[Rfam]
RNA: TPP riboswitch aptamer (THI element)
Organism: Nocardia wallacei
RNA sequence: GCACAUGCCUACGGGGGCUCGCACCAGCGGGCUGAGAGGACGGCUAGCCCGAUGCGGGCGAAUCAGGGCCGUCGACCGUUCGAACCUGACCGGGUAAUGCCGGCGUAGGGAGGAUUCUUCAAUGCCAU
Numbered sequence: 001g002c003a004c005a006u007g008c009c010u011a012c013g014g015g016g017g018c019u020c021g022c023a024c025c026a027g028c029g030g031g032c033u034g035a036g037a038g039g040a041c042g043g044c045u046a047g048c049c050c051g052a053u054g055c056g057g058g059c060g061a062a063u064c065a066g067g068g069c070c071g072u073c074g075a076c077c078g079u080u081c082g083a084a085c086c087u088g089a090c091c092g093g094g095u096a097a098u099g100c101c102g103g104c105g106u107a108g109g110g111a112g113g114a115u116u117c118u119u120c121a122a123u124g125c126c127a128u
Stems, first nucleotide, its partner, number of pairs: 007115001009113002011079004016073001017032005040072006085109004090103004